[Rfam]
RNA sequence: GUCGGUCCUCGGUAGUGGCUCCCGGACCAGGUGGUCCGAGCGCCUCGAUCGAGCACCGAC
Numbered sequence: 001g002u003c004g005g006u007c008c009u010c011g012g013u014a015g016u017g018g019c020u021c022c023c024g025g026a027c028c029a030g031g032u033g034g035u036c037c038g039a040g041c042g043c044c045u046c047g048a049u050c051g052a053g054c055a056c057c058g059a060c
Base pairs, nucleotide, nucleotide: 001060002059003058004057005056006055009052010051011050012049013048017044018043019042021040023038024037025036026035027034028033

Background
The record is a 60-nucleotide RNA sequence from Beutenbergia cavernae, which matches "Actino-pnp RNA" in Rfam. Rfam classes the family as a cis-regulatory element. The source organism's lineage runs through Bacteria, Bacillati, Actinomycetota, Actinomycetes and Beutenbergia cavernae.